[Rfam]
RNA sequence: CUGCGCCCGCUGCUGAGCCGUCAGGGCAGCUCAGCCUGUGCGUUUAAUAUCUGGUCAUGCCGCUGGCCAAAAGCCACCGCCAAGCGCACAACGGGAACCAUCGCACCAUGCGCAUAGGCCCGGCGCAGUUUCGCCACUGAGCAAUCGGCAGCGCGACGUAGAUAGCAUGACAAAACC
Numbered sequence: 001c002u003g004c005g006c007c008c009g010c011u012g013c014u015g016a017g018c019c020g021u022c023a024g025g026g027c028a029g030c031u032c033a034g035c036c037u038g039u040g041c042g043u044u045u046a047a048u049a050u051c052u053g054g055u056c057a058u059g060c061c062g063c064u065g066g067c068c069a070a071a072a073g074c075c076a077c078c079g080c081c082a083a084g085c086g087c088a089c090a091a092c093g094g095g096a097a098c099c100a101u102c103g104c105a106c107c108a109u110g111c112g113c114a115u116a117g118g119c120c121c122g123g124c125g126c127a128g129u130u131u132c133g134c135c136a137c138u139g140a141g142c143a144a145u146c147g148g149c150a151g152c153g154c155g156a157c158g159u160a161g162a163u164a165g166c167a168u169g170a171c172a173a174a175a176c177c
Stems, first nucleotide, its partner, number of pairs: 004042003012035007020027002055170006061079002064076004084126004092122004098118002102112004129156002132153003137148004
Shown here is a 177-nucleotide RNA from Cellvibrio sp. KY-GH-1, a member of the family "RT-15 RNA". The family's consensus secondary structure is taken from published work. Taxonomically the source falls in Cellvibrio (Bacteria, Pseudomonadota, Gammaproteobacteria, Cellvibrionales).